[Rfam]
RNA sequence: GAAAAACGCAUAAUUGAAUGCAGCGCUGGUGAUGCCCUGUUGUCUCUGUUUUUUUUUUUUUCUCCUCCUUCAACAAAGGAGAUCAUCAACGCUGCACUCAAUGAUGCAUUUU
Numbered sequence: 001g002a003a004a005a006a007c008g009c010a011u012a013a014u015u016g017a018a019u020g021c022a023g024c025g026c027u028g029g030u031g032a033u034g035c036c037c038u039g040u041u042g043u044c045u046c047u048g049u050u051u052u053u054u055u056u057u058u059u060u061u062c063u064c065c066u067c068c069u070u071c072a073a074c075a076a077a078g079g080a081g082a083u084c085a086u087c088a089a090c091g092c093u094g095c096a097c098u099c100a101a102u103g104a105u106g107c108a109u110u111u112u
Base pairs, nucleotide, nucleotide: 006109008107009106010105011104013102014101015100016099017098019096020095021094022093023092024091025090027088028087030085031084032083
Dot-bracket structure: .....(.((((.(((((.(((((((.((.(((..................................................))).)).))))))).))))).)))).)...